A member of the RNA family "cow-rumen-2 RNA", 105 nucleotides long. It is one of the family's seed sequences. Rfam classes the family as a small RNA.

RNA sequence: AGCGAAGUAUAAUCUAGCAAAUUAUACAUUUAGCCGCCAUGGUAUGGUAAUAUGUAGCCGAAGUACAGGAUGACCGCCUCGUAAGAUUACCAGUAAAGCCCACAG
Numbered sequence: 001a002g003c004g005a006a007g008u009a010u011a012a013u014c015u016a017g018c019a020a021a022u023u024a025u026a027c028a029u030u031u032a033g034c035c036g037c038c039a040u041g042g043u044a045u046g047g048u049a050a051u052a053u054g055u056a057g058c059c060g061a062a063g064u065a066c067a068g069g070a071u072g073a074c075c076g077c078c079u080c081g082u083a084a085g086a087u088u089a090c091c092a093g094u095a096a097a098g099c100c101c102a103c104a105g
Stems, first nucleotide, its partner, number of pairs: 002077001007027007040102001041100002043097001045092007059081003064076001068075002